[Rfam]
RNA sequence: UCCUUAUAACGAGCCGGGGGAGGAAACUGGUCUUUUGAUCCCGCAGCAACCUCUAUCAAAGUCAUAGAAGGUGCUCCUUCCAGCAGACCAUGGUCUGAAAGAUAAGGA
Numbered sequence: 001u002c003c004u005u006a007u008a009a010c011g012a013g014c015c016g017g018g019g020g021a022g023g024a025a026a027c028u029g030g031u032c033u034u035u036u037g038a039u040c041c042c043g044c045a046g047c048a049a050c051c052u053c054u055a056u057c058a059a060a061g062u063c064a065u066a067g068a069a070g071g072u073g074c075u076c077c078u079u080c081c082a083g084c085a086g087a088c089c090a091u092g093g094u095c096u097g098a099a100a101g102a103u104a105a106g107g108a
Stems, first nucleotide, its partner, number of pairs: 001108007013044001015043004022033003027083004045075004050071002053067004079100001084097005

Annotation: Shown here is a 108-nucleotide sequence from Halobacillus halophilus, a member of the family "SAM riboswitch aptamer (S box leader)". The source organism's lineage runs through Bacteria, Bacillati, Bacillota, Halobacillus and Halobacillus halophilus. A search with the family's covariance model found it, with a score of 74 bits.